The record is a 201-nucleotide RNA, which matches "FuFi-1 RNA" in Rfam. The base pairs follow the family's consensus structure, which is taken from published work. Rfam's curators put it in the seed alignment.
[Rfam]
RNA sequence: UGCGUGGGCGUGCGUGGCGGAACCAAAACCGCUAAAGUGAAGCGGCGCAUGAAGAAGCGAGUAGCGGUUUUACUCGCGGAAACAUUAAGGGGAGUACCAGUUCCUGUUUCGCGAGAGAUGGGUUCCGUUGGAUCCUGCGAUGCGCCCCGGGUAACCAAAUUUGGGGCCGUCUGCCGAUGAAACCGCCACCGGCAGUGCGUG
Numbered sequence: 001u002g003c004g005u006g007g008g009c010g011u012g013c014g015u016g017g018c019g020g021a022a023c024c025a026a027a028a029c030c031g032c033u034a035a036a037g038u039g040a041a042g043c044g045g046c047g048c049a050u051g052a053a054g055a056a057g058c059g060a061g062u063a064g065c066g067g068u069u070u071u072a073c074u075c076g077c078g079g080a081a082a083c084a085u086u087a088a089g090g091g092g093a094g095u096a097c098c099a100g101u102u103c104c105u106g107u108u109u110c111g112c113g114a115g116a117g118a119u120g121g122g123u124u125c126c127g128u129u130g131g132a133u134c135c136u137g138c139g140a141u142g143c144g145c146c147c148c149g150g151g152u153a154a155c156c157a158a159a160u161u162u163g164g165g166g167c168c169g170u171c172u173g174c175c176g177a178u179g180a181a182a183c184c185g186c187c188a189c190c191g192g193c194a195g196u197g198c199g200u201g
Stems, first nucleotide, its partner, number of pairs: 001044003005040001007038001016033005023164005045145006057077007064186007078135003083130002171195006178188002